[Rfam]
RNA sequence: UGGCUCAGCUGAAUUAGUGAUCGGCGAGUCUUCACUCAAUUUGGAGAAUAUUAUGUCACUAACUACUCAAGAAACUGCGACUAUCAUCGCUGAUUACGGCGUAAAAGAA
Numbered sequence: 001u002g003g004c005u006c007a008g009c010u011g012a013a014u015u016a017g018u019g020a021u022c023g024g025c026g027a028g029u030c031u032u033c034a035c036u037c038a039a040u041u042u043g044g045a046g047a048a049u050a051u052u053a054u055g056u057c058a059c060u061a062a063c064u065a066c067u068c069a070a071g072a073a074a075c076u077g078c079g080a081c082u083a084u085c086a087u088c089g090c091u092g093a094u095u096a097c098g099g100c101g102u103a104a105a106a107g108a109a
Stems, first nucleotide, its partner, number of pairs: 008025005041062004046057001
Description: The family of this 109-nucleotide RNA from Aliiglaciecola sp. M165 is "Ribosomal S15 leader". Rfam links the family to the GO term regulation of translation, ncRNA-mediated. From the family's description: The E. coli Ribosomal S15 gene 5' UTR can form two alternative structures. Rfam classes the family as a cis-regulatory leader.